[Rfam]
RNA: Exoribonuclease-resistant RNA (xrRNA) plant-infecting virus (class 3)
Nucleotides: 057
Stems, first nucleotide, its partner, number of pairs: 001041001008035002012030002018055005
Number, partner (000 for none) and nucleotide at each position: 001041u002000c003000a004000c005000u006000a007000g008035c009034c010000c011000g012030g013029u014000a015000c016000a017000u018055a019054c020053g021052g022051g023000u024000u025000g026000c027000a028000a029013a030012c031000g032000c033000g034009g035008g036000a037000a038000a039000g040000u041001g042000a043000a044000c045000u046000g047000c048000a049000g050000u051022c052021u053020c054019g055018u056000u057000a